[Rfam]
RNA sequence: GGCACGUCUCUUGCUGAAUCCCUCCCGGUCAGCACAACGGCGUGUCUGCCAACUUCCGACAACGACGUCAC
Dot-bracket structure: .............................(.((((......))))..).......................
Rfam assigns this 71-nucleotide sequence from Pseudomonas oryzae to the family "narK RNA". A search with the family's covariance model found it, with a score of 45 bits.